RNA: Small nucleolar RNA SNORA57
RNA sequence: CCUUCUUUCUUGGCAUGCAUACUGUUUCCCCGUACUCCUGUUUGUGUGUGUCUGUGUGUGUUGAGGGACAAAAAGGUGCAGUGCAAUGUCUUCGGUGUCAGGAUGUUUUUUGUCUUCUGGUUCUAUCCUCAAUCGCUGGUACACGA
Numbered sequence: 001c002c003u004u005c006u007u008u009c010u011u012g013g014c015a016u017g018c019a020u021a022c023u024g025u026u027u028c029c030c031c032g033u034a035c036u037c038c039u040g041u042u043u044g045u046g047u048g049u050g051u052c053u054g055u056g057u058g059u060g061u062u063g064a065g066g067g068a069c070a071a072a073a074a075g076g077u078g079c080a081g082u083g084c085a086a087u088g089u090c091u092u093c094g095g096u097g098u099c100a101g102g103a104u105g106u107u108u109u110u111u112g113u114c115u116u117c118u119g120g121u122u123c124u125a126u127c128c129u130c131a132a133u134c135g136c137u138g139g140u141a142c143a144c145g146a
Stems, first nucleotide, its partner, number of pairs: 001067004014058006021051001079138005098120006105114001